[Rfam]
RNA sequence: GGUCGGAGCACCGAUUUCCUACCCCGCAAGGGGUGAGGUAGGUGUGACGGCGUGCCUUUUGCAUAAUGA
Numbered sequence: 001g002g003u004c005g006g007a008g009c010a011c012c013g014a015u016u017u018c019c020u021a022c023c024c025c026g027c028a029a030g031g032g033g034u035g036a037g038g039u040a041g042g043u044g045u046g047a048c049g050g051c052g053u054g055c056c057u058u059u060u061g062c063a064u065a066a067u068g069a
Stems, first nucleotide, its partner, number of pairs: 002051004008045005055068001057066001